[Rfam]
RNA sequence: GAAUGUCUUCAGGGCAGGGUGAAAAUCCCGAUCGGCGGUAAAGUCCGCGAGCGUUCUCCGUGAGAGCGCAGACCCGGUGCAACUCCGGGACCGACAGUGACGUAUCCGUAAGCCGGGUGCGAAGUCUGGAUGGAAGAAGAUGUGU
Dot-bracket structure: ..((((((((......(((.......)))...((((((....[[))))..(((.............)))...(((((.......)))))]])).(((............................))).......))))))))..
Shown here is a 145-nucleotide RNA sequence from Lawsonibacter faecis, a member of the family "FMN riboswitch aptamer (RFN element)". It scores 102 bits against the family's covariance model.